[Rfam]
RNA sequence: AUAUGGUAAGCAACAGUCAAGUACUGUUUCGGGAUGGCUUAUCAGAAAUGAAUAAUCCGGCUUCCGUGUCCAUGCUGUCCGGACUCA
Numbered sequence: 001a002u003a004u005g006g007u008a009a010g011c012a013a014c015a016g017u018c019a020a021g022u023a024c025u026g027u028u029u030c031g032g033g034a035u036g037g038c039u040u041a042u043c044a045g046a047a048a049u050g051a052a053u054a055a056u057c058c059g060g061c062u063u064c065c066g067u068g069u070c071c072a073u074g075c076u077g078u079c080c081g082g083a084c085u086c087a
Base pairs, nucleotide, nucleotide: 005043006042007041008040009039010038011037013027014026015025016024
The family of this 87-nucleotide RNA sequence is "RAGATH-35 RNA". Pairs were carried over by alignment from the consensus structure, which is taken from published work.